[Rfam]
RNA: RAGATH-18 RNA
RNA sequence: ACUGUGGACUGUACAAGGAACUACGAGUAGCUAAGACGAAAGUAUACAGGAAGAAGCAGUAA
Numbered sequence: 001a002c003u004g005u006g007g008a009c010u011g012u013a014c015a016a017g018g019a020a021c022u023a024c025g026a027g028u029a030g031c032u033a034a035g036a037c038g039a040a041a042g043u044a045u046a047c048a049g050g051a052a053g054a055a056g057c058a059g060u061a062a
Stems, first nucleotide, its partner, number of pairs: 001060005009049005022044003030037001